Rfam assigns this 132-nucleotide RNA from Propioniciclava tarda to the family "ALIL pseudoknot". A search with the family's covariance model found it, with a score of 84 bits. A reference for the family is Mazauric et al. (2008), "Apical loop-internal loop RNA pseudoknots: a new type of stimulator of -1 translational frameshifting in bacteria", J Biol Chem. The family's consensus secondary structure is taken from published work. Gene Ontology term of the family: positive regulation of translational frameshifting. Taxonomically the source falls in Propioniciclava (Bacteria, Bacillati, Actinomycetes, Propionibacteriales).
RNA sequence: CGCGUAUUUCGCGCAGGCGGAGCUCGACCGCCCACAGCGGUGAUCGUCGCGUUCAUCGACGACCACAAGCACGAGCACGGGGUCGAGCCGAUCUGCAGGGUCCUGACCACUCACGGGAUCCCGAUCGCCCCG
Numbered sequence: 001c002g003c004g005u006a007u008u009u010c011g012c013g014c015a016g017g018c019g020g021a022g023c024u025c026g027a028c029c030g031c032c033c034a035c036a037g038c039g040g041u042g043a044u045c046g047u048c049g050c051g052u053u054c055a056u057c058g059a060c061g062a063c064c065a066c067a068a069g070c071a072c073g074a075g076c077a078c079g080g081g082g083u084c085g086a087g088c089c090g091a092u093c094u095g096c097a098g099g100g101u102c103c104u105g106a107c108c109a110c111u112c113a114c115g116g117g118a119u120c121c122c123g124a125u126c127g128c129c130c131c132g
Base pairs, nucleotide, nucleotide: 016032017031018030019029020028078132079131080130081129082128089127090126092124093123095121